The family of this 90-nucleotide RNA from Macaca fascicularis is "NoRC associated RNA, pRNA". For this family Rfam cites "The structure of NoRC-associated RNA is crucial for targeting the chromatin remodelling complex NoRC to the nucleolus" (Mayer et al., EMBO Rep, 2008). The source organism's lineage runs through Eukaryota, Metazoa, Gnathostomata, Cercopithecinae and Macaca. A search with the family's covariance model found it, with a score of 80 bits. Rfam links the family to the GO term chromatin remodeling. The base pairs follow the family's consensus structure, which is taken from published work. The family's RNA type in Rfam is non-coding RNA gene.
RNA sequence: CAAUGGUGGCGAUUUUGGGGACAGAUGCCCGUGUCACGGGUUCCCUGGGCUGGCAUCGUGGUUGGUGACUCGACCUCCUGUCCCCUGGGG
Numbered sequence: 001c002a003a004u005g006g007u008g009g010c011g012a013u014u015u016u017g018g019g020g021a022c023a024g025a026u027g028c029c030c031g032u033g034u035c036a037c038g039g040g041u042u043c044c045c046u047g048g049g050c051u052g053g054c055a056u057c058g059u060g061g062u063u064g065g066u067g068a069c070u071c072g073a074c075c076u077c078c079u080g081u082c083c084c085c086u087g088g089g090g
Stems, first nucleotide, its partner, number of pairs: 004087001006085001008084002011082002018079004027069001029067001030065001033062007